[Rfam]
RNA: mir-153 microRNA precursor family
RNA sequence: GCGCUCAUCAUUUUUGUGAUUGGUGCAAUUGUGCACCUGCGAAUUGCAUAGUCACAAAAGUGAUGGGUGC
Numbered sequence: 001g002c003g004c005u006c007a008u009c010a011u012u013u014u015u016g017u018g019a020u021u022g023g024u025g026c027a028a029u030u031g032u033g034c035a036c037c038u039g040c041g042a043a044u045u046g047c048a049u050a051g052u053c054a055c056a057a058a059a060g061u062g063a064u065g066g067g068u069g070c
Base pairs, nucleotide, nucleotide: 002069003068004067005066006065008063009062010061011060012059013058014057015056016055017054018053019052020051024048025047026046027045028044029043030042